[Rfam]
RNA sequence: UCGUUUAAUAUAACUUAUUCCGGGCCUUGUAAAAGACCCCAAGAACAAUUUUUGCAGCCCUGUUCUUUGGAUCAGGGUA
Number, nucleotide and partner (000 for none) at each position: 001u000002c000003g000004u000005u000006u000007a000008a000009u000010a000011u000012a000013a000014c000015u000016u000017a000018u000019u000020c000021c000022g039023g038024g037025c000026c035027u034028u033029g000030u000031a000032a000033a028034a027035g026036a000037c024038c023039c022040c000041a000042a000043g000044a000045a000046c000047a000048a000049u000050u000051u000052u000053u000054g000055c000056a000057g078058c077059c076060c075061u074062g073063u000064u071065c070066u000067u000068u000069g000070g065071a064072u000073c062074a061075g060076g059077g058078u057079a000
A member of the RNA family "SmY spliceosomal RNA" from Caenorhabditis remanei, 79 nucleotides long. The sequence is in the family's curated seed alignment. The literature on the family includes a 2009 paper in RNA Biol by Jones et al., "A survey of nematode SmY RNAs". The organism belongs to Caenorhabditis, within Eukaryota. Rfam classes the family as a spliceosomal small nuclear RNA.